[Rfam]
RNA sequence: UCCACUGUUUACCGAAAACCCCAAACUACAAUUCAUACGUCUUUUGCAGAUACAGACAUAUGUAAAACAAUAAAGAAAUCUGCA
Numbered sequence: 001u002c003c004a005c006u007g008u009u010u011a012c013c014g015a016a017a018a019c020c021c022c023a024a025a026c027u028a029c030a031a032u033u034c035a036u037a038c039g040u041c042u043u044u045u046g047c048a049g050a051u052a053c054a055g056a057c058a059u060a061u062g063u064a065a066a067a068c069a070a071u072a073a074a075g076a077a078a079u080c081u082g083c084a
Stems, first nucleotide, its partner, number of pairs: 034062003039057004045084007